The record is a 130-nucleotide sequence from Stutzerimonas stutzeri, which matches "Pseudomonas sRNA P11" in Rfam. From the family's description: This small RNA (sRNA) was computationally identified in the genome of the opportunistic pathogen Pseudomonas aeruginosa and its expression verified by northern blot analysis. P11 is located between a putative threonine protein kinase and putative nitrate reductase and appears to be conserved in several Pseudomonas species. P11 has a predicted Rho independent terminator at the 3'end but the function of P11 is unknown.

RNA sequence: CCGCGAUAAGGUUGGCACAGCCUCUGCAUUGUCAGGCUUACAUCAAGCCGGACCUUCAACGUGGAGGGUCAGGCUCCGAAUACGGAAAACAAGGACAAAGGCGUCCUCACUGGGAGAUCAGUGGGACGCC
Numbered sequence: 001c002c003g004c005g006a007u008a009a010g011g012u013u014g015g016c017a018c019a020g021c022c023u024c025u026g027c028a029u030u031g032u033c034a035g036g037c038u039u040a041c042a043u044c045a046a047g048c049c050g051g052a053c054c055u056u057c058a059a060c061g062u063g064g065a066g067g068g069u070c071a072g073g074c075u076c077c078g079a080a081u082a083c084g085g086a087a088a089a090c091a092a093g094g095a096c097a098a099a100g101g102c103g104u105c106c107u108c109a110c111u112g113g114g115a116g117a118u119c120a121g122u123g124g125g126a127c128g129c130c
Stems, first nucleotide, its partner, number of pairs: 012098003015027003047074003051070001053068002056065002081088001100130007108123006
Dot-bracket structure: ...........((((((.......)))...................(((.(.((.((......)).)).).)))......(......).......))).(((((((.((((((....)))))))))))))